[Rfam]
RNA: Small nucleolar RNA SNORA55
Organism: Nycticryphes semicollaris
RNA sequence: GCAUCUGAAUCUUUCCCGCUUCUUGCGAUGUAGUGCUGGACUUGGGAACACACGAUGCAACAGGAAAGCAGAGGAAAUCCAGACAAACUCCCUUUUGCCACAGUGGGACUUGUCUCUACGCCUUUGCAACAUUU
Numbered sequence: 001g002c003a004u005c006u007g008a009a010u011c012u013u014u015c016c017c018g019c020u021u022c023u024u025g026c027g028a029u030g031u032a033g034u035g036c037u038g039g040a041c042u043u044g045g046g047a048a049c050a051c052a053c054g055a056u057g058c059a060a061c062a063g064g065a066a067a068g069c070a071g072a073g074g075a076a077a078u079c080c081a082g083a084c085a086a087a088c089u090c091c092c093u094u095u096u097g098c099c100a101c102a103g104u105g106g107g108a109c110u111u112g113u114c115u116c117u118a119c120g121c122c123u124u125u126g127c128a129a130c131a132u133u134u
Stems, first nucleotide, its partner, number of pairs: 001058005013048006021040002068127006081115006091106002